[Rfam]
Rfam assigns this 173-nucleotide sequence from a Peptococcaceae bacterium to the family "Group II catalytic intron D1-D4-3".
Taxonomically the source falls in Peptococcaceae (Bacteria, Bacillota, Clostridia, Eubacteriales).
The family has 406 seed sequences and 4,274 matches in Rfam 15.1.
Rfam links the family to the GO term Group II intron splicing.
RNA sequence: UCCGUGGUGACACGGAAUCAGAAGGAAGUCGAAGGCUUCCCUCUGGCUCGAGGAACACGAACCUCAAGUGAGGCUAGCGACAGAUGGACGAGUCUGCGCCGUAAGACAAAGUCCUUGCUGCCAAAGUCUGUCGAGAGUGCAUGAUGCGGGUAGAUGGAGGGAUAGAUAGCGCU
Numbered sequence: 001u002c003c004g005u006g007g008u009g010a011c012a013c014g015g016a017a018u019c020a021g022a023a024g025g026a027a028g029u030c031g032a033a034g035g036c037u038u039c040c041c042u043c044u045g046g047c048u049c050g051a052g053g054a055a056c057a058c059g060a061a062c063c064u065c066a067a068g069u070g071a072g073g074c075u076a077g078c079g080a081c082a083g084a085u086g087g088a089c090g091a092g093u094c095u096g097c098g099c100c101g102u103a104a105g106a107c108a109a110a111g112u113c114c115u116u117g118c119u120g121c122c123a124a125a126g127u128c129u130g131u132c133g134a135g136a137g138u139g140c141a142u143g144a145u146g147c148g149g150g151u152a153g154a155u156g157g158a159g160g161g162a163u164a165g166a167u168a169g170c171g172c173u
Stems, first nucleotide, its partner, number of pairs: 001016006028173001030171002036165001040160006046151005062146001064144003073138003079132006086114004092107004

Pairs were carried over by alignment from the consensus structure.